RNA sequence: CGACACCGAACGGGAGAGACCCCGCGACCAGCUCGUGGGGCGCCGAAGGAGCAAGACUCCCCGCACACUCUCAGGCACCCAUGACCGUUCGGCCGAG
Numbered sequence: 001c002g003a004c005a006c007c008g009a010a011c012g013g014g015a016g017a018g019a020c021c022c023c024g025c026g027a028c029c030a031g032c033u034c035g036u037g038g039g040g041c042g043c044c045g046a047a048g049g050a051g052c053a054a055g056a057c058u059c060c061c062c063g064c065a066c067a068c069u070c071u072c073a074g075g076c077a078c079c080c081a082u083g084a085c086c087g088u089u090c091g092g093c094c095g096a097g
Stems, first nucleotide, its partner, number of pairs: 006092008020040006042076003045072002049070003055064001

The record is a 97-nucleotide sequence from Allosaccharopolyspora coralli, which matches "Glycine riboswitch aptamer" in Rfam. It scores 60 bits against the family's covariance model. Taxonomically the source falls in Allosaccharopolyspora (Bacteria, Bacillati, Actinomycetes, Pseudonocardiaceae).